[Rfam]
RNA: small nucleolar RNA snoR114
RNA sequence: AGGCUGUGACGAUAGUUGCGUUACAUUGAAGGUUAGGGUUCUUCUCAAUCGUCUGAUUCCUAGACGACGCCUCAGCGCUUCUGAGCCU
Numbered sequence: 001a002g003g004c005u006g007u008g009a010c011g012a013u014a015g016u017u018g019c020g021u022u023a024c025a026u027u028g029a030a031g032g033u034u035a036g037g038g039u040u041c042u043u044c045u046c047a048a049u050c051g052u053c054u055g056a057u058u059c060c061u062a063g064a065c066g067a068c069g070c071c072u073c074a075g076c077g078c079u080u081c082u083g084a085g086c087c088u
Stems, first nucleotide, its partner, number of pairs: 001088004